The family of this 61-nucleotide sequence from Burkholderia dolosa is "Betaproteobacteria toxic small RNA". Overexpression in amino aid rich medium attenuates growth, suggesting role in repressing amino acid intake and metabolism. The family's consensus secondary structure was predicted with WAR. It is one of the family's seed sequences.
RNA sequence: UGUCUCCUCCACCUCCUCCUAUGGUGGAUUAAGCCCGAACCAGCCGUUCGGGCUUUUUUUC
Numbered sequence: 001u002g003u004c005u006c007c008u009c010c011a012c013c014u015c016c017u018c019c020u021a022u023g024g025u026g027g028a029u030u031a032a033g034c035c036c037g038a039a040c041c042a043g044c045c046g047u048u049c050g051g052g053c054u055u056u057u058u059u060u061c
Base pairs, nucleotide, nucleotide: 008028009027010026011025012024013023032054033053034052035051036050037049038048039047
Dot-bracket structure: .......((((((.........))))))...((((((((.......)))))))).......